[Rfam]
RNA sequence: CGUAUGGUGUCUGACUGCUUUGAUACUCGCAAGAGAUAUUUGAGUAAGAAUUCAGAUAGCGAUACGGACCAAUAAAAGGU
Dot-bracket structure: (((((.((..((((.(.................................).))))...)).)))))..............
Numbered sequence: 001c002g003u004a005u006g007g008u009g010u011c012u013g014a015c016u017g018c019u020u021u022g023a024u025a026c027u028c029g030c031a032a033g034a035g036a037u038a039u040u041u042g043a044g045u046a047a048g049a050a051u052u053c054a055g056a057u058a059g060c061g062a063u064a065c066g067g068a069c070c071a072a073u074a075a076a077a078g079g080u
Stems, first nucleotide, its partner, number of pairs: 001066005007060002011055004016050001